[Rfam]
RNA: Guanidine-I riboswitch aptamer
Organism: Cytobacillus solani
RNA sequence: UUAAAUGUUUUCUAGGGUUCCGCAACUACCUGUUGGUCUGGUCCGAGAGAAAACUCACAGCUUACUGUGUCACGGAGGGAUAAAAGCCUGGGAGAA
Numbered sequence: 001u002u003a004a005a006u007g008u009u010u011u012c013u014a015g016g017g018u019u020c021c022g023c024a025a026c027u028a029c030c031u032g033u034u035g036g037u038c039u040g041g042u043c044c045g046a047g048a049g050a051a052a053a054c055u056c057a058c059a060g061c062u063u064a065c066u067g068u069g070u071c072a073c074g075g076a077g078g079g080a081u082a083a084a085a086g087c088c089u090g091g092g093a094g095a096a
Stems, first nucleotide, its partner, number of pairs: 007054006015044002020041002022038001023035004056069005071091001073094001077089003
Dot-bracket structure: ......((((((..((...(((((((.....))))..).)).))....)))))).(((((....))))).(.[...(((.......))).)..]..